[Rfam]
The record is a 283-nucleotide RNA from Nannospalax galili, which matches "Mason-Pfizer monkey virus packaging signal" in Rfam.
About the family: This family represents a group of sequences that are related to the Mason-Pfizer monkey virus (MPMV) packaging signal. The packaging signal is located in the 5' UTR and is required for specific RNA encapsidation.
By type it is a cis-regulatory element.
Pairs were carried over by alignment from the consensus structure, which was predicted with PFOLD.
RNA sequence: UGGUGCCCAACGUGGGGCUGGAUACUGGGGGACAAUGUAAGGGACACGAUGGAGUAAAGAAGGGGUGCGCACCCGAUCAAACAAUAGUUCGGAGACAUCGCGGUAGCCUGCUGUGACCGAGCCGACAGGUAAGUUUGUCGUGCACUUUAAAUUAUGGGGCAAGCAUUGAGUCAGCAUCAGAAAUAUGUGAUACAGUUAAGAGAAGCAUUACAGGCAAGAGGAGUAAAGGUUACAACUGAGGAUUUAUUUCAUUUCUUUGAUUUUGUGAAAGACAUCUGCCCAU
Number, nucleotide and partner (000 for none) at each position: 001u000002g000003g000004u000005g000006c030007c029008c028009a000010a000011c000012g025013u024014g023015g000016g000017g000018c000019u000020g000021g000022a000023u014024a013025c012026u000027g000028g008029g007030g006031g000032a000033c000034a000035a000036u048037g047038u046039a000040a000041g000042g000043g000044a000045c000046a038047c037048g036049a000050u000051g000052g000053a000054g000055u000056a000057a000058a000059g000060a000061a000062g000063g000064g000065g000066u000067g000068c000069g000070c000071a000072c000073c000074c000075g000076a000077u000078c000079a000080a000081a000082c000083a000084a000085u000086a000087g000088u000089u129090c128091g126092g000093a000094g000095a000096c121097a000098u000099c115100g114101c113102g112103g111104u000105a000106g000107c000108c000109u000110g000111c103112u102113g101114u100115g099116a000117c000118c000119g000120a000121g096122c000123c000124g000125a000126c091127a000128g090129g089130u000131a000132a000133g000134u000135u000136u000137g000138u000139c000140g000141u161142g160143c159144a000145c158146u157147u156148u000149a000150a000151a000152u000153u000154a000155u000156g147157g146158g145159g143160c142161a141162a000163g000164c000165a000166u000167u210168g209169a208170g206171u205172c000173a000174g000175c000176a000177u000178c000179a000180g000181a000182a000183a000184u000185a000186u000187g000188u000189g000190a000191u000192a000193c000194a000195g000196u000197u000198a000199a000200g000201a000202g000203a000204a000205g171206c170207a000208u169209u168210a167211c000212a000213g000214g000215c000216a000217a000218g258219a257220g256221g255222a254223g253224u000225a000226a000227a245228g244229g243230u242231u241232a000233c000234a000235a000236c000237u000238g000239a000240g000241g231242a230243u229244u228245u227246a000247u000248u000249u000250c000251a000252u000253u223254u222255c221256u220257u219258u218259g000260a000261u000262u000263u000264u000265g000266u000267g000268a283269a000270a000271g280272a000273c278274a000275u000276c000277u000278g273279c000280c271281c000282a000283u268